[Rfam]
RNA sequence: GACGAAAUUUGGGACGAAUCCACAAUUCGUCCCAGAUUCUGGGACGAAUCCACAAUUCGUCCCAGAUUUUGGGACGAAUUUUGUGGAUUCGUCCCAAAAU
Numbered sequence: 001g002a003c004g005a006a007a008u009u010u011g012g013g014a015c016g017a018a019u020c021c022a023c024a025a026u027u028c029g030u031c032c033c034a035g036a037u038u039c040u041g042g043g044a045c046g047a048a049u050c051c052a053c054a055a056u057u058c059g060u061c062c063c064a065g066a067u068u069u070u071g072g073g074a075c076g077a078a079u080u081u082u083g084u085g086g087a088u089u090c091g092u093c094c095c096a097a098a099a100u
Stems, first nucleotide, its partner, number of pairs: 013093009024080011035067001038066002041063001043061006
RNA: Small nucleolar RNA SNORD90